The record is an 84-nucleotide RNA sequence from Danio rerio, which matches "mir-25 microRNA precursor family" in Rfam. On this family, see Linsen et al., BMC Genomics 2010: "Small RNA expression and strain specificity in the rat". NCBI's taxonomy places the organism under Eukaryota, Metazoa, Chordata, Teleostomi, Danio. The family's consensus secondary structure was predicted with RNAalifold.
[Rfam]
Nucleotides: 084
Base pairs, nucleotide, nucleotide: 002083003082004081007078008077009076014071015070016069017068019066020065021064022063023062028057029056030055031054034052035051036050
Number, partner (000 for none) and nucleotide at each position: 001000a002083g003082c004081c005000g006000g007078c008077g009076c010000u011000g012000a013000g014071a015070g016069g017068c018000g019066g020065a021064g022063a023062c024000u025000u026000g027000g028057g029056c030055a031054g032000c033000u034052g035051c036050c037000g038000u039000c040000a041000u042000u043000c044000c045000c046000a047000g048000a049000a050036g051035g052034c053000a054031u055030u056029g057028c058000a059000c060000u061000u062023g063022u064021c065020u066019c067000g068017g069016u070015c071014u072000g073000a074000c075000a076009g077008u078007g079000g080000c081004g082003g083002c084000a